Source information
A member of the RNA family "Bacterial RNase P class A" from Rothia santali, 373 nucleotides long. A search with the family's covariance model found it, with a score of 293 bits. Rfam links the family to the GO terms tRNA processing, ribonuclease P activity and dimeric ribonuclease P complex. The organism belongs to Rothia, within Bacteria.
[Rfam]
RNA sequence: CGGGUCGGCCUGGCGAUCGCGCGGCGUGGUGAACGUCUCGAGGAAAGUCCGGGCUCCGCAGAGCAGGAUGGUGGAUAACGUCCACUCGGGGUGACCCGCAGGCCAGUGCCACAGAAAACAGACCGCCCGCCGUCUCGGCGGGUCAGGGUGAAACGGUGGUGUAAGAGACCACCAGUUCCCGCGGCGACGCGGGAAGCUCGGUAAACCCCAUCCGGAGCAAGGCCAGACAGGAUGCGCCACGAGGGCUGCUCGCCCCAGCAUCCGGGUAGGCCGCUCGACCCCCGGAGCAAUCCGGGGGCUAGAUGGAUGAUCGCCCAGGCGCUCGGAGCGAUCCGGCGCCGGACAAAACCCGGCUUACAGGCCGUCCCGUCCC
Numbered sequence: 001c002g003g004g005u006c007g008g009c010c011u012g013g014c015g016a017u018c019g020c021g022c023g024g025c026g027u028g029g030u031g032a033a034c035g036u037c038u039c040g041a042g043g044a045a046a047g048u049c050c051g052g053g054c055u056c057c058g059c060a061g062a063g064c065a066g067g068a069u070g071g072u073g074g075a076u077a078a079c080g081u082c083c084a085c086u087c088g089g090g091g092u093g094a095c096c097c098g099c100a101g102g103c104c105a106g107u108g109c110c111a112c113a114g115a116a117a118a119c120a121g122a123c124c125g126c127c128c129g130c131c132g133u134c135u136c137g138g139c140g141g142g143u144c145a146g147g148g149u150g151a152a153a154c155g156g157u158g159g160u161g162u163a164a165g166a167g168a169c170c171a172c173c174a175g176u177u178c179c180c181g182c183g184g185c186g187a188c189g190c191g192g193g194a195a196g197c198u199c200g201g202u203a204a205a206c207c208c209c210a211u212c213c214g215g216a217g218c219a220a221g222g223c224c225a226g227a228c229a230g231g232a233u234g235c236g237c238c239a240c241g242a243g244g245g246c247u248g249c250u251c252g253c254c255c256c257a258g259c260a261u262c263c264g265g266g267u268a269g270g271c272c273g274c275u276c277g278a279c280c281c282c283c284g285g286a287g288c289a290a291u292c293c294g295g296g297g298g299c300u301a302g303a304u305g306g307a308u309g310a311u312c313g314c315c316c317a318g319g320c321g322c323u324c325g326g327a328g329c330g331a332u333c334c335g336g337c338g339c340c341g342g343a344c345a346a347a348a349c350c351c352g353g354c355u356u357a358c359a360g361g362c363c364g365u366c367c368c369g370u371c372c373c
Stems, first nucleotide, its partner, number of pairs: 001369004006364005012315007020040002023037005045356003049353005054217004061251004066213005071085005086100001087098004101208002106206002108202003123147002125143008155173006175197001176195008221272004230263006243255004279298008